[Rfam]
RNA: Group II catalytic intron D1-D4-4
Organism: Anaerovirgula multivorans
RNA sequence: UGACUGGUGCAAGUCCUGUCAGAGUAAGGGUCAGGUUGCUUGGUAGCUAGUAACCAAUAUACGGAGUAAUCUGUGUCUUGAAGCGUUAUGAAAUUUGGUAAAAGUGUACAAAUUGGGGAAUUGUAAGAUAG
Numbered sequence: 001u002g003a004c005u006g007g008u009g010c011a012a013g014u015c016c017u018g019u020c021a022g023a024g025u026a027a028g029g030g031u032c033a034g035g036u037u038g039c040u041u042g043g044u045a046g047c048u049a050g051u052a053a054c055c056a057a058u059a060u061a062c063g064g065a066g067u068a069a070u071c072u073g074u075g076u077c078u079u080g081a082a083g084c085g086u087u088a089u090g091a092a093a094u095u096u097g098g099u100a101a102a103a104g105u106g107u108a109c110a111a112a113u114u115g116g117g118g119a120a121u122u123g124u125a126a127g128a129u130a131g
Stems, first nucleotide, its partner, number of pairs: 020043001022041003050089005055080003059076002064071002096102001108124003